[Rfam]
Rfam assigns this 64-nucleotide RNA sequence from Hemibagrus wyckioides to the family "mir-7552 microRNA precursor family".
It scores 70 bits against the family's covariance model.
The family has 4 seed sequences and 220 matches in Rfam 15.1.
RNA sequence: UUACAAUUAAAGGAUAUUUCUUGCAGGCUCGUGCGAAACCGGAAAUGUCCCUUAAUUGUUUGGU
Numbered sequence: 001u002u003a004c005a006a007u008u009a010a011a012g013g014a015u016a017u018u019u020c021u022u023g024c025a026g027g028c029u030c031g032u033g034c035g036a037a038a039c040c041g042g043a044a045a046u047g048u049c050c051c052u053u054a055a056u057u058g059u060u061u062g063g064u
Base pairs, nucleotide, nucleotide: 003059004058005057006056007055008054009053010052012050013049014048015047016046017045018044019043020042021041024035